[Rfam]
RNA sequence: CUCUUACGCUGAGUUAGUGAUCGGCGUGGGGGUGAAAUACAUUAAUUUUGGAGAAAAGACUAUGUCACUAAGCGUAGAAGCUAAGGCUAAGAUCGUUGCUGAGUUCGGCCGCGGUGAG
Numbered sequence: 001c002u003c004u005u006a007c008g009c010u011g012a013g014u015u016a017g018u019g020a021u022c023g024g025c026g027u028g029g030g031g032g033u034g035a036a037a038u039a040c041a042u043u044a045a046u047u048u049u050g051g052a053g054a055a056a057a058g059a060c061u062a063u064g065u066c067a068c069u070a071a072g073c074g075u076a077g078a079a080g081c082u083a084a085g086g087c088u089a090a091g092a093u094c095g096u097u098g099c100u101g102a103g104u105u106c107g108g109c110c111g112c113g114g115u116g117a118g
Base pairs, nucleotide, nucleotide: 007026008025009024010023011022012021047072048071049070050069051068053066
RNA: Ribosomal S15 leader
Organism: Ferrimonas marina